[Rfam]
RNA: permuted transfer-messenger RNA
Organism: Sulfitobacter donghicola
RNA sequence: GAACAUAAACGCGCUUGUAAUAAACGGUUCGGACCCGGGGGCGGUACCCGGCGACUCCACCAAACAUCCGUCAUUUGCGGACCAUGGGGUCGAAAUAGGAUCGACGAACGUCUAAAGAAGUUAGCUUUGUUUCGGCUGUCUGCCACCGAUAUCGGCGAAAACUGUACAAUUGCAAAUGACAAUCGUGCUCCAAUGGCGAUGGCCGCGUAA
Numbered sequence: 001g002a003a004c005a006u007a008a009a010c011g012c013g014c015u016u017g018u019a020a021u022a023a024a025c026g027g028u029u030c031g032g033a034c035c036c037g038g039g040g041g042c043g044g045u046a047c048c049c050g051g052c053g054a055c056u057c058c059a060c061c062a063a064a065c066a067u068c069c070g071u072c073a074u075u076u077g078c079g080g081a082c083c084a085u086g087g088g089g090u091c092g093a094a095a096u097a098g099g100a101u102c103g104a105c106g107a108a109c110g111u112c113u114a115a116a117g118a119a120g121u122u123a124g125c126u127u128u129g130u131u132u133c134g135g136c137u138g139u140c141u142g143c144c145a146c147c148g149a150u151a152u153c154g155g156c157g158a159a160a161a162c163u164g165u166a167c168a169a170u171u172g173c174a175a176a177u178g179a180c181a182a183u184c185g186u187g188c189u190c191c192a193a194u195g196g197c198g199a200u201g202g203c204c205g206c207g208u209a210a
Stems, first nucleotide, its partner, number of pairs: 001132005013121004025110002029107003035051005052092007133148003